[Rfam]
RNA sequence: GGUGCGGUCGGAAUCCGCAGCAAUGCGGAGCCCUGUGGCAGGGGCGUGCCAUACACAAACCGAAGUAGUGGAGA
Numbered sequence: 001g002g003u004g005c006g007g008u009c010g011g012a013a014u015c016c017g018c019a020g021c022a023a024u025g026c027g028g029a030g031c032c033c034u035g036u037g038g039c040a041g042g043g044g045c046g047u048g049c050c051a052u053a054c055a056c057a058a059a060c061c062g063a064a065g066u067a068g069u070g071g072a073g074a
Stems, first nucleotide, its partner, number of pairs: 001050006014029006061065001
About this RNA: Rfam assigns this 74-nucleotide RNA from Chania multitudinisentens to the family "KDPG-aldolase RNA". Pairs were carried over by alignment from the consensus structure, which is taken from published work. Rfam classes the family as a small RNA. NCBI's taxonomy places the organism under Bacteria, Pseudomonadati, Enterobacterales, Yersiniaceae, Chania multitudinisentens. A search with the family's covariance model found it, with a score of 62 bits.